[Rfam]
RNA sequence: UUGUCAUAGAAUAACUUAUUCUGUGGUCACUUUGAAUUACGAUAAUUACCAUGCUAACUUACGAGACUACAAUAACUCCUUACUAAGUGAUUUACUAUAACAUUAUGGUAAAUAUCACGUGAGUUAUAGUAACACGAGUAUCGUAAAUGUAUAUUCAUGUUAUGGUAAAUUGGUACAAACAUUAUCGUAAAUCAAGGUGGCUAUAAAAUAAGUUAUUUUAUGGCUA
Numbered sequence: 001u002u003g004u005c006a007u008a009g010a011a012u013a014a015c016u017u018a019u020u021c022u023g024u025g026g027u028c029a030c031u032u033u034g035a036a037u038u039a040c041g042a043u044a045a046u047u048a049c050c051a052u053g054c055u056a057a058c059u060u061a062c063g064a065g066a067c068u069a070c071a072a073u074a075a076c077u078c079c080u081u082a083c084u085a086a087g088u089g090a091u092u093u094a095c096u097a098u099a100a101c102a103u104u105a106u107g108g109u110a111a112a113u114a115u116c117a118c119g120u121g122a123g124u125u126a127u128a129g130u131a132a133c134a135c136g137a138g139u140a141u142c143g144u145a146a147a148u149g150u151a152u153a154u155u156c157a158u159g160u161u162a163u164g165g166u167a168a169a170u171u172g173g174u175a176c177a178a179a180c181a182u183u184a185u186c187g188u189a190a191a192u193c194a195a196g197g198u199g200g201c202u203a204u205a206a207a208a209u210a211a212g213u214u215a216u217u218u219u220a221u222g223g224c225u226a
Stems, first nucleotide, its partner, number of pairs: 001226001003224018022205012037190010052175006059168004066163001069160003074154001080146004087141003091137002093131009103121001107116001
MIR6217 microRNA precursor family: a 226-nucleotide sequence from Miscanthus lutarioriparius. Lineage of the source: Eukaryota > Streptophyta > Mesangiospermae > Poaceae > Miscanthus. A search with the family's covariance model found it, with a score of 144 bits. Its family is annotated with miRNA-mediated post-transcriptional gene silencing and RISC complex in the Gene Ontology.